This 334-nucleotide RNA from Oryctolagus cuniculus belongs to the Rfam family "Small Cajal body-specific RNA 7". Rfam's curators put it in the seed alignment. Gene Ontology terms of the family: RNA processing and nucleolus. The family has 18 seed sequences and 570 matches in Rfam 15.1. By type it is a small Cajal body RNA. A reference for the family is Darzacq et al. (2002), "Cajal body-specific small nuclear RNAs: a novel class of 2'-O-methylation and pseudouridylation guide RNAs", EMBO J.
RNA sequence: UGGAAAUGAUGAAAUAGAGAUAAUUGGGUGUUGAAUGUUGUAUGACUGGAAAUUAUUAGUAUUAAUGUUAAGAAAUUAUAAGUUUAAUGUUUUAUGGAUACUUACUAGAGUGUGUGUGUGUGUGUGAGCAUGUGUGUGCUUAUGGUGGCUAUGGAAAGGGGGCACUGAGUGGUGAUGCUGAUAUUGGAGUGCAUCUGAGGCUGUUGUAGAAAUAACAUGGGUUGUUGAUUACAACAUUGCCGAUGAUUAUGACCCAAAAACAGCUCACCUAAGUAGCCUAACACCCUAAAAUCUCUGACAGGUUCAUUAAACAUGGUCCUGUGAUCUGAUCCAA
Numbered sequence: 001u002g003g004a005a006a007u008g009a010u011g012a013a014a015u016a017g018a019g020a021u022a023a024u025u026g027g028g029u030g031u032u033g034a035a036u037g038u039u040g041u042a043u044g045a046c047u048g049g050a051a052a053u054u055a056u057u058a059g060u061a062u063u064a065a066u067g068u069u070a071a072g073a074a075a076u077u078a079u080a081a082g083u084u085u086a087a088u089g090u091u092u093u094a095u096g097g098a099u100a101c102u103u104a105c106u107a108g109a110g111u112g113u114g115u116g117u118g119u120g121u122g123u124g125u126g127a128g129c130a131u132g133u134g135u136g137u138g139c140u141u142a143u144g145g146u147g148g149c150u151a152u153g154g155a156a157a158g159g160g161g162g163c164a165c166u167g168a169g170u171g172g173u174g175a176u177g178c179u180g181a182u183a184u185u186g187g188a189g190u191g192c193a194u195c196u197g198a199g200g201c202u203g204u205u206g207u208a209g210a211a212a213u214a215a216c217a218u219g220g221g222u223u224g225u226u227g228a229u230u231a232c233a234a235c236a237u238u239g240c241c242g243a244u245g246a247u248u249a250u251g252a253c254c255c256a257a258a259a260a261c262a263g264c265u266c267a268c269c270u271a272a273g274u275a276g277c278c279u280a281a282c283a284c285c286c287u288a289a290a291a292u293c294u295c296u297g298a299c300a301g302g303u304u305c306a307u308u309a310a311a312c313a314u315g316g317u318c319c320u321g322u323g324a325u326c327u328g329a330u331c332c333a334a
Stems, first nucleotide, its partner, number of pairs: 001333004202236008211226006